Rfam assigns this 183-nucleotide RNA sequence from Psychrobacillus psychrotolerans to the family "Lysine riboswitch aptamer".
Pairs were carried over by alignment from the consensus structure, which is taken from published work.
RNA sequence: AGAAUAGGUAGAGGCCGCAUAACAAAAGAGUAGUUUACAGGAGAAUGACAACUGUGAUUGUAAACGAAAGGAAGUUAUGCCGAAAUUAGAUGUUGACCGUCAAGUCAAAUCUAGUUGGGGUUAUUUUGAACAAAAAUAACACUGUCAUUUAUACAUAUGUAUAAAUGGAGAGCUACAAAGUAU
Number, nucleotide and partner (000 for none) at each position: 001a000002g000003a000004a000005u000006a000007g000008g176009u175010a174011g173012a000013g000014g000015c000016c000017g080018c079019a078020u077021a076022a075023c074024a000025a000026a000027a000028g000029a000030g000031u000032a000033g065034u064035u063036u062037a061038c060039a059040g058041g000042a000043g000044a000045a000046u000047g000048a000049c000050a000051a000052c000053u000054g000055u000056g000057a000058u040059u039060g038061u037062a036063a035064a034065c033066g000067a000068a000069a000070g000071g000072a000073a000074g023075u022076u021077a020078u019079g018080c017081c000082g000083a000084a116085a115086u114087u113088a112089g111090a110091u109092g000093u108094u107095g106096a105097c000098c000099g000100u000101c000102a000103a000104g000105u096106c095107a094108a093109a091110u090111c089112u088113a087114g086115u085116u084117g143118g142119g000120g140121u139122u138123a137124u136125u135126u134127u133128g000129a000130a000131c000132a000133a127134a126135a125136a124137u123138a122139a121140c120141a000142c118143u117144g000145u168146c167147a166148u165149u164150u163151a162152u000153a000154c000155a000156u000157a000158u000159g000160u000161a000162u151163a150164a149165a148166u147167g146168g145169a000170g000171a000172g000173c011174u010175a009176c008177a000178a000179a000180g000181u000182a000183u000